U5 spliceosomal RNA: an 88-nucleotide sequence from Odobenus rosmarus. By type it is a spliceosomal small nuclear RNA.
Nucleotides: 088
Stems, first nucleotide, its partner, number of pairs: 003078004009068011028054008
Number, partner (000 for none) and nucleotide at each position: 001000c002000u003078a004077c005076u006075c007000u008000g009068g010067u011066u012065u013064c014063u015062c016061u017060u018059c019058a020000g021000a022000u023000c024000g025000u026000a027000u028054a029053a030052a031051u032050c033049u034048u035047u036000c037000a038000c039000c040000u041000u042000u043000u044000a045000c046000u047035a048034a049033a050032g051031a052030u053029u054028u055000c056000c057000a058019u059018g060017g061016a062015g063014a064013g065012g066011a067010a068009c069000a070000a071000u072000u073000c074000u075006g076005a077004g078003u079000c080000u081000g082000a083000u084000a085000g086000c087000a088000g
The base pairs follow the family's consensus structure, which is taken from published work. On this family, see Thomas et al., Nucleic Acids Res 1990: "The spliceosomal snRNAs of Caenorhabditis elegans". It scores 71 bits against the family's covariance model. The source organism's lineage runs through Eukaryota, Opisthokonta, Craniata, Teleostomi and Odobenus rosmarus.